[Rfam]
RNA: mir-160 microRNA precursor family
RNA sequence: GUGUGCCUGGCUCCCUGUAUGCCAUUUGUUGACCCCAUCACAAUGGUCAUGGCCUUACCAAAUGGCGUAUGAGGAGUCAUGCAUGC
Number, nucleotide and partner (000 for none) at each position: 001g086002u085003g084004u083005g082006c081007c000008u079009g078010g077011c076012u075013c074014c073015c000016u071017g070018u069019a068020u067021g066022c065023c064024a063025u000026u000027u060028g059029u000030u000031g000032a000033c000034c000035c000036c000037a000038u000039c000040a000041c000042a000043a000044u000045g000046g000047u000048c000049a000050u000051g000052g000053c000054c000055u000056u000057a000058c000059c028060a027061a000062a000063u024064g023065g022066c021067g020068u019069a018070u017071g016072a000073g014074g013075a012076g011077u010078c009079a008080u000081g006082c005083a004084u003085g002086c001